Shown here is a 224-nucleotide RNA from Kurthia sibirica, a member of the family "T-box leader". Rfam describes the family as follows. Uncharged tRNA acts as the effector for transcription antitermination of genes in the T-box leader family.
[Rfam]
RNA sequence: AGCAAAACGUUGAAGAGGAGAAGUAUGUUGCGCAAGCUCCGAUUAGAGAGGAUCAUCAUCGUCUGAAAGUGAUCCGAGCCACUGCAAAGCUGAAAUGCACCUCUGAGUGUUAGAGUGAAUCGAGUAGUUCUAACCGGUCGUCGCCGUUACCAGACUUUAAGUGGGGGUUUAGCGUAUUUUGCUAGCUCCAAUCAGAGUGGAACCGCGUAUUUCUCGCCUCUGUC
Numbered sequence: 001a002g003c004a005a006a007a008c009g010u011u012g013a014a015g016a017g018g019a020g021a022a023g024u025a026u027g028u029u030g031c032g033c034a035a036g037c038u039c040c041g042a043u044u045a046g047a048g049a050g051g052a053u054c055a056u057c058a059u060c061g062u063c064u065g066a067a068a069g070u071g072a073u074c075c076g077a078g079c080c081a082c083u084g085c086a087a088a089g090c091u092g093a094a095a096u097g098c099a100c101c102u103c104u105g106a107g108u109g110u111u112a113g114a115g116u117g118a119a120u121c122g123a124g125u126a127g128u129u130c131u132a133a134c135c136g137g138u139c140g141u142c143g144c145c146g147u148u149a150c151c152a153g154a155c156u157u158u159a160a161g162u163g164g165g166g167g168u169u170u171a172g173c174g175u176a177u178u179u180u181g182c183u184a185g186c187u188c189c190a191a192u193c194a195g196a197g198u199g200g201a202a203c204c205g206c207g208u209a210u211u212u213c214u215c216g217c218c219u220c221u222g223u224c
Stems, first nucleotide, its partner, number of pairs: 007108002015103004027090001028087004040076002051074006110133007135146003164189006194221004205217003